[Rfam]
Record summary: The record is a 111-nucleotide RNA sequence from Bowmanella sp. JS7-9, which matches "Ribosomal S15 leader" in Rfam. Taxonomically the source falls in Bowmanella (Bacteria, Pseudomonadati, Alteromonadales, Alteromonadaceae). It is annotated as a cis-regulatory leader. Pairs were carried over by alignment from the consensus structure, which is taken from published work. On this family, see Benard et al., Biochimie 1996: "Pseudoknot and translational control in the expression of the S15 ribosomal protein".
Nucleotides: 111
Stems, first nucleotide, its partner, number of pairs: 007026006043064004048059001
Number, partner (000 for none) and nucleotide at each position: 001000g002000a003000u004000u005000u006000u007026g008025g009024c010023u011022g012021a013000a014000u015000u016000a017000g018000u019000g020000a021012u022011c023010g024009g025008c026007u027000g028000a029000g030000a031000u032000c033000c034000u035000u036000a037000u038000c039000u040000a041000c042000a043064u044063u045062g046061g047000a048059g049000a050000a051000a052000u053000u054000u055000a056000u057000g058000u059048c060000a061046c062045u063044a064043a065000g066000u067000a068000c069000u070000c071000a072000a073000g074000a075000a076000a077000a078000a079000g080000c081000a082000c083000a084000g085000a086000u087000u088000u089000u090000a091000g092000c093000u094000g095000a096000c097000u098000u099000c100000g101000c102000a103000g104000u105000u106000a107000a108000a109000g110000a111000a